[Rfam]
RNA sequence: ACGCCCUGCUCGUGAUCGUCUUCUCAACCUUCACCGGGCGGGCGAAUGGCGGAAGGCCCCCUGCGAGGACGUGACUCGCCGGGGGCCUUC
Numbered sequence: 001a002c003g004c005c006c007u008g009c010u011c012g013u014g015a016u017c018g019u020c021u022u023c024u025c026a027a028c029c030u031u032c033a034c035c036g037g038g039c040g041g042g043c044g045a046a047u048g049g050c051g052g053a054a055g056g057c058c059c060c061c062u063g064c065g066a067g068g069a070c071g072u073g074a075c076u077c078g079c080c081g082g083g084g085g086c087c088u089u090c
Stems, first nucleotide, its partner, number of pairs: 002044002005042007012034004018028002052090010063079005
This 90-nucleotide RNA from Streptomyces lavendofoliae belongs to the Rfam family "sodF sRNA". It scores 85 bits against the family's covariance model. Pairs were carried over by alignment from the consensus structure.